[Rfam]
RNA sequence: UUCGGUCCUCGGUAGUGGGCCUCGGACCCGGAGCACCCCGCAGGGGGAGCCUGGCUCCGCGGACCUCGAUCGAAGACCAGC
Numbered sequence: 001u002u003c004g005g006u007c008c009u010c011g012g013u014a015g016u017g018g019g020c021c022u023c024g025g026a027c028c029c030g031g032a033g034c035a036c037c038c039c040g041c042a043g044g045g046g047g048a049g050c051c052u053g054g055c056u057c058c059g060c061g062g063a064c065c066u067c068g069a070u071c072g073a074a075g076a077c078c079a080g081c
Base pairs, nucleotide, nucleotide: 002080004078005077006076007075009073010072011071012070013069017065018064020062021061023059024058025057026056028054029053030052031051
Notes: This 81-nucleotide sequence from Luteimicrobium subarcticum belongs to the Rfam family "Actino-pnp RNA". A search with the family's covariance model found it, with a score of 49 bits.